[Rfam]
This 391-nucleotide part of an RNA from Hymenobacter sp. 5317J-9 belongs to the Rfam family "Bacterial large subunit ribosomal RNA". Its family is annotated with structural constituent of ribosome and ribosome in the Gene Ontology.
RNA sequence: GAUAAUGCGGGUGCGAAACCCGCACGCCGAUAGACUAAGGUUUCCAGCUCAACGCUAAUCGGAGCUGGGUUAGUCGGGACCUAAGGGGCAGCCGAACGGUGAACUCGAUGGACAGCAGGUUAAUAUUCCUGUACUGAUGAUAGCAAGUGAUGCAGUGACGCAGAAGUGAAAGCACCGCGGGCGGACGGAAGUGCCCGUUGAAGGCCGUAGGUAUUGGGAGAGUAGUUAAGUACGCUCACCUAGCCGAAAGCUGAUAGUACCGCACGAGUUUCGACUCACGCGGAUAGUGUGCCUAAUCCGACUGCCAAGAAAACCUGCUAAGCGUUUUAAUGCUAUUAUCACCCGUACCGCAAACCGACACAGGUAGUCAAGGAGAGCAUCCUGAGGCGCU
Dot-bracket structure: .....((((((.......))))))((((....((((..((...((((((...((.....)).))))))......((((.((...(((...(((....)))...)))...))...(((((........)))))..(((((((((((.((...((((....((((..(.....((((.((((((..........))))))(...(((....(((....((.((((.((.....)))))).))..)))....)))....).(.(((................)))..)...)))).....)...)))).........))))...)).......)))))))))))))))..)).....((......)).)))).((((.....))))..))))..